Shown here is an 89-nucleotide RNA sequence from Paracoccus aminovorans, a member of the family "Glycine riboswitch aptamer".
This family represents the bacterial glycine riboswitch.
Lineage of the source: Bacteria > Pseudomonadota > Rhodobacterales > Paracoccaceae > Paracoccus.
The pairing is the family consensus, mapped onto this sequence.
[Rfam]
RNA sequence: AGUCGGAAAUCGGGAGACGCUGGCGCAAGCCAGGGCCGAAGGAGCAACCGCCCCGGGAAUCUCUCAGGCGAAGGGACCGUUUUCCGGUG
Numbered sequence: 001a002g003u004c005g006g007a008a009a010u011c012g013g014g015a016g017a018c019g020c021u022g023g024c025g026c027a028a029g030c031c032a033g034g035g036c037c038g039a040a041g042g043a044g045c046a047a048c049c050g051c052c053c054c055g056g057g058a059a060u061c062u063c064u065c066a067g068g069c070g071a072a073g074g075g076a077c078c079g080u081u082u083u084c085c086g087g088u089g
Stems, first nucleotide, its partner, number of pairs: 006084004011079003020033004035069003038065002042063003048056002